[Rfam]
RNA sequence: GUCAUUGGUUGACAACGAGAGAGAGCACGCCGGUUCGCAAGCCAUGGCGGCGGCCAUGGUUGUGCACUAGCGUGCUCCUUCUCGUUGUCACACGCGG
Numbered sequence: 001g002u003c004a005u006u007g008g009u010u011g012a013c014a015a016c017g018a019g020a021g022a023g024a025g026c027a028c029g030c031c032g033g034u035u036c037g038c039a040a041g042c043c044a045u046g047g048c049g050g051c052g053g054c055c056a057u058g059g060u061u062g063u064g065c066a067c068u069a070g071c072g073u074g075c076u077c078c079u080u081c082u083c084g085u086u087g088u089c090a091c092a093c094g095c096g097g
Stems, first nucleotide, its partner, number of pairs: 010090005016084002020080002023077001025075006032068003
Dot-bracket structure: .........(((((.((..((.(.((((((.(((...............................))).)))))).).))..)).))))).......

This 97-nucleotide RNA from Musa troglodytarum belongs to the Rfam family "MIR535 microRNA precursor family". The organism belongs to Musa, within Eukaryota. Gene Ontology terms of the family: miRNA-mediated post-transcriptional gene silencing and RISC complex. On this family, see Zeng et al., Nucleic Acids Res 2010: "Conservation and divergence of microRNAs and their functions in Euphorbiaceous plants".